[Rfam]
RNA: glmS glucosamine-6-phosphate activated ribozyme aptamer
RNA sequence: UUUUUUUACAAAGCGCCUGAACUAGCAGGAGAGCGCCUGGCUAGUUGACGAGGAGGAGGUUUAUCGAGUGUUCGGCGGAUGCCUCCCGGUUGCUCCGUACAACCGUUAGUCCUUUCUUAAAGCACAAAGGCAACUUUGUGUACAAAGGGAAUGGAAAUGCGGAUC
Numbered sequence: 001u002u003u004u005u006u007u008a009c010a011a012a013g014c015g016c017c018u019g020a021a022c023u024a025g026c027a028g029g030a031g032a033g034c035g036c037c038u039g040g041c042u043a044g045u046u047g048a049c050g051a052g053g054a055g056g057a058g059g060u061u062u063a064u065c066g067a068g069u070g071u072u073c074g075g076c077g078g079a080u081g082c083c084u085c086c087c088g089g090u091u092g093c094u095c096c097g098u099a100c101a102a103c104c105g106u107u108a109g110u111c112c113u114u115u116c117u118u119a120a121a122g123c124a125c126a127a128a129g130g131c132a133a134c135u136u137u138g139u140g141u142a143c144a145a146a147g148g149g150a151a152u153g154g155a156a157a158u159g160c161g162g163a164u165c
Base pairs, nucleotide, nucleotide: 020046021045022044023043024042025041026040029037055086056085057084058083059082064075065074066073067072087105088104089103090102091101092100110155111154112153114151115150116149123140124139125138126137127136128135129134